[Rfam]
RNA sequence: UGUUGCAACAUCCCCGUGGGUUGGGGGAACGGCAGAGCUUAGGGCCGUCUCAGUGAAUCCACUGCAACA
Numbered sequence: 001u002g003u004u005g006c007a008a009c010a011u012c013c014c015c016g017u018g019g020g021u022u023g024g025g026g027g028a029a030c031g032g033c034a035g036a037g038c039u040u041a042g043g044g045c046c047g048u049c050u051c052a053g054u055g056a057a058u059c060c061a062c063u064g065c066a067a068c069a
Stems, first nucleotide, its partner, number of pairs: 001069007013055001014053001016062007024054001026051002029048005
RNA: nadA riboswitch